About this RNA: The family of this 76-nucleotide RNA sequence from Alligator mississippiensis is "Mammalian CPEB3 ribozyme". Rfam links the family to the GO term RNA nuclease activity. Pairs were carried over by alignment from the consensus structure, which is taken from published work.
RNA sequence: AUUACAAAUUCAAGGCCACAGCAGAAGUGCUUAGGGUGAGGCCCUGUCAGAUGCCAACAAAUCUGUGAAUUCUGCU
Dot-bracket structure: .............[[[[..(((((((.((.......)).]]]]....(((((........)))))....)))))))
Numbered sequence: 001a002u003u004a005c006a007a008a009u010u011c012a013a014g015g016c017c018a019c020a021g022c023a024g025a026a027g028u029g030c031u032u033a034g035g036g037u038g039a040g041g042c043c044c045u046g047u048c049a050g051a052u053g054c055c056a057a058c059a060a061a062u063c064u065g066u067g068a069a070u071u072c073u074g075c076u
Stems, first nucleotide, its partner, number of pairs: 014043004020076007028038002048065005